The record is a 53-nucleotide RNA sequence from Lichenibacterium minor, which matches "ffh sRNA" in Rfam.
The base pairs follow the family's consensus structure, which is taken from published work.
On this family, see Meyer et al., BMC Genomics 2009: "Identification of candidate structured RNAs in the marine organism 'Candidatus Pelagibacter ubique'".
RNA sequence: GAGCGCGGAGGCGAACGUCCGACAGCGCUUGUGCGCCCUCGGGCGCGCUCCGU
Dot-bracket structure: ...............(((((((..((((....))))..)))))))........
Numbered sequence: 001g002a003g004c005g006c007g008g009a010g011g012c013g014a015a016c017g018u019c020c021g022a023c024a025g026c027g028c029u030u031g032u033g034c035g036c037c038c039u040c041g042g043g044c045g046c047g048c049u050c051c052g053u
Stems, first nucleotide, its partner, number of pairs: 016045007025036004